[Rfam]
RNA sequence: AGACCGCGAUGAAGCGAAAGGUUGCUAUCAAUGGAAAUUUUCGCUGAGAAUGUCUAGAUCUAAGAAUCGGGCGACAA
Dot-bracket structure: .............(((.((((...(((....)))...)))))))......((((..(.((........)).))))).
Numbered sequence: 001a002g003a004c005c006g007c008g009a010u011g012a013a014g015c016g017a018a019a020g021g022u023u024g025c026u027a028u029c030a031a032u033g034g035a036a037a038u039u040u041u042c043g044c045u046g047a048g049a050a051u052g053u054c055u056a057g058a059u060c061u062a063a064g065a066a067u068c069g070g071g072c073g074a075c076a077a
Stems, first nucleotide, its partner, number of pairs: 014044003018041004025034003051076004057072001059070002
The record is a 77-nucleotide RNA from Alkaliphilus peptidifermentans, which matches "S10-Clostridia ribosomal protein leader" in Rfam. Pairs were carried over by alignment from the consensus structure, which is taken from published work.